[Rfam]
RNA sequence: CUCUUAUCGAGAGUUGGCUGAGGGAAUUGGCCCUGUGAAGCCCGGCAACCGGCCCUGUUUACCAUUUUGGUAACAGGGACACGGUGCUACAUCCAACAGACAUUUUUUGUCUGAGAGAUAAGAG
Number, nucleotide and partner (000 for none) at each position: 001c124002u123003c122004u121005u120006a119007u118008c117009g000010a000011g000012a000013g043014u000015u000016g042017g041018c040019u000020g000021a000022g033023g032024g031025a000026a000027u096028u095029g094030g093031c024032c023033c022034u000035g000036u000037g000038a000039a000040g018041c017042c016043c013044g088045g087046c086047a085048a000049c084050c083051g080052g000053c078054c077055c076056u075057g074058u073059u072060u000061a000062c000063c000064a000065u000066u000067u000068u000069g000070g000071u000072a059073a058074c057075a056076g055077g054078g053079a000080c051081a000082c000083g050084g049085u047086g046087c045088u044089a000090c000091a000092u116093c030094c029095a028096a027097c113098a112099g111100a110101c109102a108103u000104u000105u000106u000107u000108u102109g101110u100111c099112u098113g097114a000115g000116a092117g008118a007119u006120a005121a004122g003123a002124g001
Overview: Shown here is a 124-nucleotide sequence from Jeotgalibacillus sp. R-1-5s-1, a member of the family "SAM riboswitch aptamer (S box leader)". A reference for the family is Rodionov et al. (2004), "Comparative genomics of the methionine metabolism in Gram-positive bacteria: a variety of regulatory systems", Nucleic Acids Res. Rfam links the family to the GO term regulation of gene expression. Rfam describes the family as follows. The SAM riboswitch is found upstream of a number of genes which code for proteins involved in methionine or cysteine biosynthesis in Gram-positive bacteria. It scores 84 bits against the family's covariance model. The source organism's lineage runs through Bacteria, Bacillati, Bacillota, Caryophanales and Jeotgalibacillus.